This 112-nucleotide RNA sequence from Microthlaspi erraticum belongs to the Rfam family "Small nucleolar RNA Z107/R87". Rfam classes the family as a C/D-box small nucleolar RNA. Lineage of the source: Eukaryota > Streptophytina > malvids > Coluteocarpeae > Microthlaspi. It scores 82 bits against the family's covariance model.
RNA sequence: GAUGGCAAUGACGACUCGGAAAAUUCAAGCUCAACAGACCGGAAUUAGGCGUUUCUUUCUCUUUUGGAUGAUUCGCUUCUGUGUCGAUAAUACCGCUGAACUGAGCCUUAUC
Numbered sequence: 001g002a003u004g005g006c007a008a009u010g011a012c013g014a015c016u017c018g019g020a021a022a023a024u025u026c027a028a029g030c031u032c033a034a035c036a037g038a039c040c041g042g043a044a045u046u047a048g049g050c051g052u053u054u055c056u057u058u059c060u061c062u063u064u065u066g067g068a069u070g071a072u073u074c075g076c077u078u079c080u081g082u083g084u085c086g087a088u089a090a091u092a093c094c095g096c097u098g099a100a101c102u103g104a105g106c107c108u109u110a111u112c
Stems, first nucleotide, its partner, number of pairs: 001112003004107003